This 46-nucleotide RNA from Urbifossiella limnaea belongs to the Rfam family "Acido-Lenti-1 RNA". Pairs were carried over by alignment from the consensus structure, which is taken from published work. By type it is a small RNA.
[Rfam]
RNA sequence: CCCGGGGUUGCCACCCCGGGCUCAGCACGAACGCCCCUCCGGGGCU
Numbered sequence: 001c002c003c004g005g006g007g008u009u010g011c012c013a014c015c016c017c018g019g020g021c022u023c024a025g026c027a028c029g030a031a032c033g034c035c036c037c038u039c040c041g042g043g044g045c046u
Stems, first nucleotide, its partner, number of pairs: 001020008033045005